Shown here is a 96-nucleotide RNA sequence, a member of the family "Xanthomonadaceae sRNA Xoo1". The literature on the family includes a 2011 paper in BMC Genomics by Liang et al., "Identification and functional characterization of small non-coding RNAs in Xanthomonas oryzae pathovar oryzae". By type it is a small RNA. The family's consensus secondary structure was predicted with CMfinder. It is one of the family's seed sequences.

[Rfam]
RNA sequence: GCCGGUUAACCGCGCCUACGCGCGUGGCCGACAACAGGCUCUCUCUCGCCGACGAAUUCCCAUAAAUUGAUUCAGCAUUCGCGCCUUCGGGCGCGA
Numbered sequence: 001g002c003c004g005g006u007u008a009a010c011c012g013c014g015c016c017u018a019c020g021c022g023c024g025u026g027g028c029c030g031a032c033a034a035c036a037g038g039c040u041c042u043c044u045c046u047c048g049c050c051g052a053c054g055a056a057u058u059c060c061c062a063u064a065a066a067u068u069g070a071u072u073c074a075g076c077a078u079u080c081g082c083g084c085c086u087u088c089g090g091g092c093g094c095g096a
Stems, first nucleotide, its partner, number of pairs: 001032001003030004011022003033071001035069001037050003051059002079096007